Source information: Rfam assigns this 74-nucleotide RNA from Hypsibius exemplaris to the family "mir-87 microRNA precursor family". The source organism's lineage runs through Eukaryota, Metazoa, Panarthropoda, Hypsibiidae and Hypsibius. A reference for the family is Sempere et al. (2003), "Temporal regulation of microRNA expression in Drosophila melanogaster mediated by hormonal signals and broad-Complex gene activity", Dev Biol.
[Rfam]
RNA sequence: GGCUAAUAGGCCUGAGAAUUUAGCUCGAACCGAAGCCAUAAUUGCGGUGAGCAAAGUUUCAGGUUUAUUAGCUG
Numbered sequence: 001g002g003c004u005a006a007u008a009g010g011c012c013u014g015a016g017a018a019u020u021u022a023g024c025u026c027g028a029a030c031c032g033a034a035g036c037c038a039u040a041a042u043u044g045c046g047g048u049g050a051g052c053a054a055a056g057u058u059u060c061a062g063g064u065u066u067a068u069u070a071g072c073u074g
Stems, first nucleotide, its partner, number of pairs: 002072006009065007017057001019055003024051004030047003